A member of the RNA family "NiCo (Nickel/Cobalt) riboswitch aptamer", 85 nucleotides long. Rfam links the family to the GO terms metal ion homeostasis and cobalt ion binding.
[Rfam]
RNA sequence: ACAGUACAAACUGAGCAGACCGUGAAUAUCAUGGGGUCGGGUCGCAGAAGCGACAGUGGAAGUUAGUUUCAUCCACGGGACAGUA
Numbered sequence: 001a002c003a004g005u006a007c008a009a010a011c012u013g014a015g016c017a018g019a020c021c022g023u024g025a026a027u028a029u030c031a032u033g034g035g036g037u038c039g040g041g042u043c044g045c046a047g048a049a050g051c052g053a054c055a056g057u058g059g060a061a062g063u064u065a066g067u068u069u070c071a072u073c074c075a076c077g078g079g080a081c082a083g084u085a
Base pairs, nucleotide, nucleotide: 010084011083012082013081016079018038019037020036021035022032023031024030025029041054042053043052044051045050056076057075058074059073060072